A member of the RNA family "SAM riboswitch aptamer (S box leader)" from Paenibacillus sp. J45TS6, 133 nucleotides long. For this family Rfam cites "The S box regulon: a new global transcription termination control system for methionine and cysteine biosynthesis genes in gram-positive bacteria" (Grundy and Henkin, Mol Microbiol, 1998). A search with the family's covariance model found it, with a score of 80 bits. Rfam's curators write: The SAM riboswitch is found upstream of a number of genes which code for proteins involved in methionine or cysteine biosynthesis in Gram-positive bacteria.

RNA sequence: UUCUUAUCGAGAGUGGCGGAGGGACAGGCCCUAUGAAGCCCGGCAACCGAUUCUUUAUAGAUCGUUUUUCUAUAUAGGAUGACAUGGUGCUAAAUCCUUCAAGAUCAUACGUUUUGGUCUUGGCAGAUGAGAA
Number, nucleotide and partner (000 for none) at each position: 001u133002u132003c131004u130005u129006a128007u127008c126009g000010a000011g000012a000013g041014u000015g040016g039017c038018g000019g000020a000021g031022g030023g029024a000025c000026a098027g097028g096029c023030c022031c021032u000033a000034u000035g000036a000037a000038g017039c016040c015041c013042g091043g090044c089045a088046a000047c087048c086049g083050a000051u081052u000053c000054u000055u000056u000057a000058u000059a000060g000061a000062u000063c000064g000065u000066u000067u000068u000069u000070c000071u000072a000073u000074a000075u000076a000077g000078g000079a000080u000081g051082a000083c049084a000085u000086g048087g047088u045089g044090c043091u042092a000093a000094a000095u125096c028097c027098u026099u000100c122101a121102a120103g119104a118105u117106c116107a115108u000109a000110c000111g000112u000113u000114u000115u107116g106117g105118u104119c103120u102121u101122g100123g000124c000125a095126g008127a007128u006129g005130a004131g003132a002133a001